[Rfam]
Rfam assigns this 92-nucleotide RNA from Aminivibrio pyruvatiphilus to the family "tRNA". The family's RNA type in Rfam is transfer RNA.

RNA sequence: GGUGGGUUGGCCGAGUAGGCUGAAGGCACUCGCCUGCUAAGCGAGUAGGGGGGCUUAAACCUCCCUCGAGGGUUCGAAUCCCUCACCCACCG
Dot-bracket structure: (((((((..(((............))).(((((.......)))))......................(((((.......)))))))))))).